[Rfam]
RNA sequence: CGCAAGAAACGGCAAGAUACCUGAAAGGGUAUUACGCAAAGCUUCCGGUCUAAGGGUAAUUACCUACGAUAGCGGGGCCACCUAA
Dot-bracket structure: ...........((...((((((....))))))...))...(((.((((((....(((....)))...)))..)))))).......
Numbered sequence: 001c002g003c004a005a006g007a008a009a010c011g012g013c014a015a016g017a018u019a020c021c022u023g024a025a026a027g028g029g030u031a032u033u034a035c036g037c038a039a040a041g042c043u044u045c046c047g048g049u050c051u052a053a054g055g056g057u058a059a060u061u062a063c064c065u066a067c068g069a070u071a072g073c074g075g076g077g078c079c080a081c082c083u084a085a
Stems, first nucleotide, its partner, number of pairs: 012037002017032006041078003045075003048070003055064003
c-di-GMP-I riboswitch aptamer: an 85-nucleotide sequence from Thalassomonas actiniarum.
It scores 67 bits against the family's covariance model.
The family's consensus secondary structure is taken from published work.